[Rfam]
Shown here is a 79-nucleotide RNA from Hermetia illucens, a member of the family "drz-agam-1 ribozyme". A search with the family's covariance model found it, with a score of 38 bits.
RNA sequence: UACUACCAAACCCUAUCUCCACCUCCACGUGGUGAAGACUGGCAGCUAUUUCUUAACGAAAAGCUGCAGACGGAGAAGG
Numbered sequence: 001u002a003c004u005a006c007c008a009a010a011c012c013c014u015a016u017c018u019c020c021a022c023c024u025c026c027a028c029g030u031g032g033u034g035a036a037g038a039c040u041g042g043c044a045g046c047u048a049u050u051u052c053u054u055a056a057c058g059a060a061a062a063g064c065u066g067c068a069g070a071c072g073g074a075g076a077a078g079g
Base pairs, nucleotide, nucleotide: 012079013078014077016075018073019072021033022032023031043066044065045064046063047062049060050059052058
Dot-bracket structure: ...........(((.(.((.(((.......))).........(((((.((.(.....))).))))).....)).).)))
On this family, see Webb et al., Science 2009: "Widespread occurrence of self-cleaving ribozymes". The family's consensus secondary structure is taken from published work. Rfam 15.1 lists 10,507 matches to the family in 53 species.